[Rfam]
c-di-AMP riboswitch aptamer (ydaO/yuaA leader): a 144-nucleotide RNA from Candidatus Kurthia intestinigallinarum.
A search with the family's covariance model found it, with a score of 95 bits.
The base pairs follow the family's consensus structure.
Gene Ontology terms of the family: cyclic-di-AMP binding and regulation of gene expression.

RNA sequence: GUUUCUAAAUCGCUGAAGUGAAAACGCGGGGGAACCAAUCGUUACGAAGUCUUGUACUUCUUGGGGUGAAUCCACAUUGUGGUAAGGCUAACUCUUAUGGCCUGAAUCCGACAGCUAACCUCGUAAGCGUUAUAAGGAGAUGGC
Numbered sequence: 001g002u003u004u005c006u007a008a009a010u011c012g013c014u015g016a017a018g019u020g021a022a023a024a025c026g027c028g029g030g031g032g033a034a035c036c037a038a039u040c041g042u043u044a045c046g047a048a049g050u051c052u053u054g055u056a057c058u059u060c061u062u063g064g065g066g067u068g069a070a071u072c073c074a075c076a077u078u079g080u081g082g083u084a085a086g087g088c089u090a091a092c093u094c095u096u097a098u099g100g101c102c103u104g105a106a107u108c109c110g111a112c113a114g115c116u117a118a119c120c121u122c123g124u125a126a127g128c129g130u131u132a133u134a135a136g137g138a139g140a141u142g143g144c
Base pairs, nucleotide, nucleotide: 011129012128013127014126018025019024026124027123028122029121030120031119036063037062064109065108066107072082073081074080075079085103086102087101088100